The family of this 79-nucleotide sequence from Pleurocapsales cyanobacterium LEGE 06147 is "Photosynthesis regulatory RNA1". It scores 47 bits against the family's covariance model. Rfam links the family to the GO terms regulation of photosynthesis and regulation of translation. NCBI's taxonomy places the organism under Bacteria, Bacillati, Cyanobacteriota, Cyanophyceae, Pleurocapsales. For this family Rfam cites "The small regulatory RNA SyR1/PsrR1 controls photosynthetic functions in cyanobacteria" (Georg et al., Plant Cell, 2014). The family's RNA type in Rfam is small RNA. Pairs were carried over by alignment from the consensus structure, which was predicted with CMfinder. Formerly known as Syr1 discovered in Synechocystis sp PCC 6803, is a regulatory factor controlling photosynthetic functions.

RNA sequence: ACAAGCCUUAAGCAGCUUAGGUAUCUCGCGUCAACAUUGAUUUCUCCUGAAUUAACCUCGGCAGAUAGCCGAGUUUUUU
Numbered sequence: 001a002c003a004a005g006c007c008u009u010a011a012g013c014a015g016c017u018u019a020g021g022u023a024u025c026u027c028g029c030g031u032c033a034a035c036a037u038u039g040a041u042u043u044c045u046c047c048u049g050a051a052u053u054a055a056c057c058u059c060g061g062c063a064g065a066u067a068g069c070c071g072a073g074u075u076u077u078u079u
Base pairs, nucleotide, nucleotide: 054075057073058072059071060070061069062068